[Rfam]
RNA: nhaA-I RNA
RNA sequence: GGGUGCCGGGCCACGAGGCGCGGCAGGUUCUGCACUGGUCGGGCCGCCAGCG
Numbered sequence: 001g002g003g004u005g006c007c008g009g010g011c012c013a014c015g016a017g018g019c020g021c022g023g024c025a026g027g028u029u030c031u032g033c034a035c036u037g038g039u040c041g042g043g044c045c046g047c048c049a050g051c052g
Stems, first nucleotide, its partner, number of pairs: 005024004010019003033052001035050005